The family of this 84-nucleotide RNA from Aotus nancymaae is "mir-548 microRNA precursor family". A search with the family's covariance model found it, with a score of 94 bits. Taxonomically the source falls in Aotus (Eukaryota, Bilateria, Amniota, Euarchontoglires).
[Rfam]
RNA sequence: UUUUAGGUUGGUGUAAAGGUAAUUGCAGUUUUUGCCAUUACUUUUAAUGGCAAAAACUGCAAUUACCUUUGCACCAGCCUAAUA
Numbered sequence: 001u002u003u004u005a006g007g008u009u010g011g012u013g014u015a016a017a018g019g020u021a022a023u024u025g026c027a028g029u030u031u032u033u034g035c036c037a038u039u040a041c042u043u044u045u046a047a048u049g050g051c052a053a054a055a056a057c058u059g060c061a062a063u064u065a066c067c068u069u070u071g072c073a074c075c076a077g078c079c080u081a082a083u084a
Stems, first nucleotide, its partner, number of pairs: 001084001003082038
Pairs were carried over by alignment from the consensus structure, which was predicted with WAR.